[Rfam]
RNA sequence: GCUUAUCUUCAGGGCACCGUGAGAUUCGGGACCGGCGGUAAAUAGGGCUUUGACCUUAUGACUCCGCGAUUCGCAAUAGCGAUUGAAGCAGUGAGAACCUGCUAGCGACAGUUAAAUGUGACCAAAUGGGAACAUUUAAUCAAUAGAUUUUGUUUAACAAAAUUUAUUGAUUUGAUAGUCUGGAUGGAAGAAGAUGAAC
Numbered sequence: 001g002c003u004u005a006u007c008u009u010c011a012g013g014g015c016a017c018c019g020u021g022a023g024a025u026u027c028g029g030g031a032c033c034g035g036c037g038g039u040a041a042a043u044a045g046g047g048c049u050u051u052g053a054c055c056u057u058a059u060g061a062c063u064c065c066g067c068g069a070u071u072c073g074c075a076a077u078a079g080c081g082a083u084u085g086a087a088g089c090a091g092u093g094a095g096a097a098c099c100u101g102c103u104a105g106c107g108a109c110a111g112u113u114a115a116a117u118g119u120g121a122c123c124a125a126a127u128g129g130g131a132a133c134a135u136u137u138a139a140u141c142a143a144u145a146g147a148u149u150u151u152g153u154u155u156a157a158c159a160a161a162a163u164u165u166a167u168u169g170a171u172u173u174g175a176u177a178g179u180c181u182g183g184a185u186g187g188a189a190g191a192a193g194a195u196g197a198a199c
Stems, first nucleotide, its partner, number of pairs: 003197008017029003033107002035067004062105002071082002087103005109182003